[Rfam]
RNA sequence: AUUUCCGCGUUAAUUCUCAUUAAGACAGGGAAAACGACGGGAUUUGACGUUUACUUGAUGCCACAGAAAUGCAGCAAUGGCGUAAGACGUAGUGUGAAAUCAAGUAAUUAGCGGGCUGUGGGUAGCAGUCUGACCUAAAACAUGGAAUCAGCAAUGCUGCAUAUUUUUGCAAUUAUUGACUGAUAAACAGUGCUGUGUUUCACAAAGCUGUAUUUUCGCUAAGAAACAUAGGCUUACCGAAAUAUGCGCCCCUAUGCAGGCGACAACCGUGAGGUUGACGACUUUGCGAUAAGACUCGGGGUCAUCGGUCUUCCUCUCGGUCAGGACGUUAUUUUGCCCGCAGCUUAGUUGCCAA
Numbered sequence: 001a002u003u004u005c006c007g008c009g010u011u012a013a014u015u016c017u018c019a020u021u022a023a024g025a026c027a028g029g030g031a032a033a034a035c036g037a038c039g040g041g042a043u044u045u046g047a048c049g050u051u052u053a054c055u056u057g058a059u060g061c062c063a064c065a066g067a068a069a070u071g072c073a074g075c076a077a078u079g080g081c082g083u084a085a086g087a088c089g090u091a092g093u094g095u096g097a098a099a100u101c102a103a104g105u106a107a108u109u110a111g112c113g114g115g116c117u118g119u120g121g122g123u124a125g126c127a128g129u130c131u132g133a134c135c136u137a138a139a140a141c142a143u144g145g146a147a148u149c150a151g152c153a154a155u156g157c158u159g160c161a162u163a164u165u166u167u168u169g170c171a172a173u174u175a176u177u178g179a180c181u182g183a184u185a186a187a188c189a190g191u192g193c194u195g196u197g198u199u200u201c202a203c204a205a206a207g208c209u210g211u212a213u214u215u216u217c218g219c220u221a222a223g224a225a226a227c228a229u230a231g232g233c234u235u236a237c238c239g240a241a242a243u244a245u246g247c248g249c250c251c252c253u254a255u256g257c258a259g260g261c262g263a264c265a266a267c268c269g270u271g272a273g274g275u276u277g278a279c280g281a282c283u284u285u286g287c288g289a290u291a292a293g294a295c296u297c298g299g300g301g302u303c304a305u306c307g308g309u310c311u312u313c314c315u316c317u318c319g320g321u322c323a324g325g326a327c328g329u330u331a332u333u334u335u336g337c338c339c340g341c342a343g344c345u346u347a348g349u350u351g352c353c354a355a
Stems, first nucleotide, its partner, number of pairs: 003042005014032005051107008062096004069090003074081002113346011131323005137317001146177003156167001189234003193231004198226004236309005248302005261280002264277005